[Rfam]
RNA sequence: AUGGAAGGGAUGAUUAUUUCCCCAGAUGAACGAAGUUGAACAAACUGAGCGAUCUUUUCUCUAAGGAGAAUCAAAGCCAGAAAUCUGAUCCGU
Numbered sequence: 001a002u003g004g005a006a007g008g009g010a011u012g013a014u015u016a017u018u019u020c021c022c023c024a025g026a027u028g029a030a031c032g033a034a035g036u037u038g039a040a041c042a043a044a045c046u047g048a049g050c051g052a053u054c055u056u057u058u059c060u061c062u063a064a065g066g067a068g069a070a071u072c073a074a075a076g077c078c079a080g081a082a083a084u085c086u087g088a089u090c091c092g093u
Stems, first nucleotide, its partner, number of pairs: 001093005

The record is a 93-nucleotide sequence from Jatropha curcas, which matches "Small nucleolar RNA Z103" in Rfam. Rfam classes the family as a C/D-box small nucleolar RNA. For this family Rfam cites "The high diversity of snoRNAs in plants: identification and comparative study of 120 snoRNA genes from Oryza sativa" (Chen et al., Nucleic Acids Res, 2003). It scores 84 bits against the family's covariance model. The base pairs follow the family's consensus structure, which was predicted with PFOLD.